[Rfam]
RNA: mir-515 microRNA precursor family
RNA sequence: UCCCAAACUGUGACCCUCCAAAGGGAAGUGCUUUCUGCUGUCUGAAAAGAAAGAAUGCCUUUCCUUUAGAGUGUUACCGUUUGAGG
Dot-bracket structure: ((.((.((.(((((.(((.(((((((((.((.(((...(...........).))).))))))))))).))).))))).)).)).))
Numbered sequence: 001u002c003c004c005a006a007a008c009u010g011u012g013a014c015c016c017u018c019c020a021a022a023g024g025g026a027a028g029u030g031c032u033u034u035c036u037g038c039u040g041u042c043u044g045a046a047a048a049g050a051a052a053g054a055a056u057g058c059c060u061u062u063c064c065u066u067u068a069g070a071g072u073g074u075u076a077c078c079g080u081u082u083g084a085g086g
Stems, first nucleotide, its partner, number of pairs: 001086002004083002007080002010077005016071003020067009030058002033055003039051001